RNA sequence: GCGACGGGACGACCCGCCGUGCGAUCACUUGUUCGGGGACGACCCCA
Numbered sequence: 001g002c003g004a005c006g007g008g009a010c011g012a013c014c015c016g017c018c019g020u021g022c023g024a025u026c027a028c029u030u031g032u033u034c035g036g037g038g039a040c041g042a043c044c045c046c047a
Base pairs, nucleotide, nucleotide: 001020002019003018005016006015007014008013035046036045037044038043
Rfam assigns this 47-nucleotide RNA sequence from Pigmentiphaga aceris to the family "Guanidine-II riboswitch aptamer (mini-ykkC)". The source organism's lineage runs through Bacteria, Pseudomonadota, Betaproteobacteria, Alcaligenaceae and Pigmentiphaga.